[Rfam]
RNA sequence: GAGGCAGGCUGGGCAGUCGCGGUACGUAAGUGUCGAGGAAGGUCCGGACUCCAUAGAGCAGGGUAGCGGCUAACAGCCGUCCGGCAAGUGUGGCAUCACGCCAGACGAGCCGAGGACCAGGGCCACAGAGACGAGACCACAGCAAGGGCUUGCGCAAGCAGGCACAGAUACGGCGACCUCCGUGUUUUCUUGUACUUCGGUGCAAAGUGCUGUGGGGUGAAACGCGGUAACCUCUACCCGGAGCAAUACCAAAUAGGCAUACGCAGGCUUUUAGCCCGAGAGGCGGCUCGUCUUAGUAUGCGGGUAGGUAGCUAGAACCGGCCAGUAAUGGUCGGUCCAGAGGAAUGAUUGCCGGCCAGCGGGUUCCCGCUGGCAUACAGAAUCCGGCCUAUAGGCCUGUCUCACAC
Number, nucleotide and partner (000 for none) at each position: 001g403002a402003g401004g400005c399006a398007g397008g396009c395010u394011g392012g353013g352014c351015a350016g349017u348018c347019g000020c035021g034022g033023u032024a031025c030026g000027u000028a000029a000030g025031u024032g023033u022034c021035g020036a000037g000038g000039a000040a390041g389042g388043u000044c387045c386046g385047g384048a383049c243050u242051c241052c240053a000054u000055a000056g289057a288058g287059c286060a000061g239062g238063g237064u236065a235066g080067c079068g078069g077070c076071u000072a000073a000074c000075a000076g070077c069078c068079g067080u066081c114082c112083g111084g110085c109086a000087a000088g000089u000090g000091u000092g000093g000094c000095a000096u000097c000098a000099c000100g000101c000102c000103a000104g000105a000106c000107g000108a000109g085110c084111c083112g082113a000114g081115g234116a233117c000118c000119a000120g232121g231122g228123c227124c226125a000126c000127a000128g000129a000130g000131a000132c000133g000134a000135g000136a000137c216138c215139a213140c212141a211142g210143c209144a208145a000146g000147g000148g000149c000150u000151u000152g000153c000154g000155c000156a000157a000158g000159c000160a000161g000162g000163c000164a000165c000166a000167g000168a000169u000170a000171c000172g000173g000174c000175g000176a000177c000178c000179u000180c000181c000182g000183u000184g000185u000186u000187u000188u000189c000190u000191u000192g000193u000194a000195c000196u000197u000198c000199g000200g000201u000202g000203c000204a000205a000206a000207g000208u144209g143210c142211u141212g140213u139214g000215g138216g137217g000218u000219g000220a000221a000222a000223c000224g000225c000226g124227g123228u122229a000230a000231c121232c120233u116234c115235u065236a064237c063238c062239c061240g052241g051242a050243g049244c000245a000246a000247u310248a309249c308250c307251a000252a000253a000254u000255a000256g000257g301258c300259a299260u298261a297262c296263g000264c000265a000266g000267g000268c000269u000270u000271u000272u000273a000274g000275c000276c000277c000278g000279a000280g294281a293282g292283g291284c290285g000286g059287c058288u057289c056290g284291u283292c282293u281294u280295a000296g262297u261298a260299u259300g258301c257302g000303g000304g000305u000306a000307g250308g249309u248310a247311g000312c000313u000314a000315g000316a000317a336318c335319c334320g333321g332322c331323c330324a329325g000326u000327a000328a000329u324330g323331g322332u321333c320334g319335g318336u317337c000338c000339a000340g000341a000342g000343g000344a000345a000346u000347g018348a017349u016350u015351g014352c013353c012354g000355g000356c000357c000358a000359g000360c000361g000362g000363g000364u000365u000366c000367c000368c000369g000370c000371u000372g000373g000374c000375a000376u000377a000378c000379a000380g000381a000382a000383u048384c047385c046386g045387g044388c042389c041390u040391a000392u011393a000394g010395g009396c008397c007398u006399g005400u004401c003402u002403c001404a000405c000406a000407c000

Shown here is a 407-nucleotide RNA sequence from Alcaligenes sp. EGD-AK7, a member of the family "Bacterial RNase P class A".
It scores 219 bits against the family's covariance model.
The base pairs follow the family's consensus structure, which is taken from published work.
Its family is annotated with tRNA processing, dimeric ribonuclease P complex and ribonuclease P activity in the Gene Ontology.
The family's RNA type in Rfam is ribozyme.
Rfam's curators write: Ribonuclease P (RNase P) is a ubiquitous endoribonuclease, found in archaea, bacteria and eukarya as well as chloroplasts and mitochondria.
NCBI's taxonomy places the organism under Bacteria, Pseudomonadati, Pseudomonadota, Betaproteobacteria, Alcaligenes.